[Rfam]
RNA: BsrC
Organism: Sporosarcina sp. BI001-red
RNA sequence: CCUAACAUAAGCAACGCAAACCCUACCUACUUUUGCGUCCUUGCGGCCCUAUAGCCGCGCCAGUUUGAAUACGUAUAAUGGGUAAACA
Number, nucleotide and partner (000 for none) at each position: 001c000002c000003u000004a000005a000006c000007a000008u000009a000010a000011g000012c000013a000014a000015c000016g000017c000018a000019a000020a000021c000022c000023c000024u000025a000026c000027c000028u000029a000030c000031u000032u000033u000034u000035g000036c067037g066038u000039c000040c063041u062042u059043g058044c057045g056046g055047c054048c000049c000050u000051a000052u000053a000054g047055c046056c045057g044058c043059g042060c000061c000062a041063g040064u000065u000066u037067g036068a000069a000070u000071a000072c000073g000074u000075a000076u000077a000078a000079u000080g000081g000082g000083u000084a000085a000086a000087c000088a000